[Rfam]
Nucleotides: 116
Base pairs, nucleotide, nucleotide: 001079002078003077004076009038011037012036013035014034015033016032021030022029039066040065041064044062045061046060048057049056082105083104084103085102086101088100089099090098091097
Number, partner (000 for none) and nucleotide at each position: 001079g002078g003077u004076c005000a006000a007000g008000a009038g010000c011037a012036c013035c014034a015033g016032c017000g018000c019000c020000a021030a022029g023000c024000c025000c026000c027000g028000g029022c030021u031000c032016g033015c034014u035013g036012g037011u038009c039066g040065g041064c042000a043000a044062c045061c046060c047000u048057c049056c050000a051000c052000u053000u054000g055000c056049g057048g058000u059000g060046g061045g062044g063000u064041g065040c066039c067000c068000c069000g070000g071000g072000a073000g074000a075000c076004g077003a078002c079001c080000u081000g082105g083104g084103c085102c086101g087000u088100g089099u090098g091097c092000a093000c094000a095000c096000c097091g098090c099089a100088c101086c102085g103084g104083u105082c106000a107000a108000g109000c110000g111000c112000g113000a114000g115000c116000a

Shown here is a 116-nucleotide sequence from Marihabitans asiaticum, a member of the family "SAM (S-adenosyl methionine) riboswitch aptamer". The source organism's lineage runs through Bacteria, Bacillati, Actinomycetota, Actinomycetes and Marihabitans. A search with the family's covariance model found it, with a score of 102 bits. SAM-IV is a mRNA element that regulates gene expression via direct sensing of S-adenosylmethionine (SAM or AdoMet). SAM-IV riboswitches share conserved nucleotide positions with the previously described SAM-I riboswitches sequence analysis and molecular recognition experiments suggest that SAM-I and SAM-IV riboswitches share similar ligand binding sites, but have different scaffolds. Pairs were carried over by alignment from the consensus structure, which is taken from published work.